[Rfam]
RNA: Bacillaceae-1 RNA
RNA sequence: UACACAAAUCCGGGGGCAAAAACGCCACGUCGUGUGGCAUUGCCCCCAUGACCAACGUCGUGUUGG
Numbered sequence: 001u002a003c004a005c006a007a008a009u010c011c012g013g014g015g016g017c018a019a020a021a022a023c024g025c026c027a028c029g030u031c032g033u034g035u036g037g038c039a040u041u042g043c044c045c046c047c048a049u050g051a052c053c054a055a056c057g058u059c060g061u062g063u064u065g066g
Base pairs, nucleotide, nucleotide: 012047013046014045015044016043017042024038025037026036027035028034052066053065054064055063056062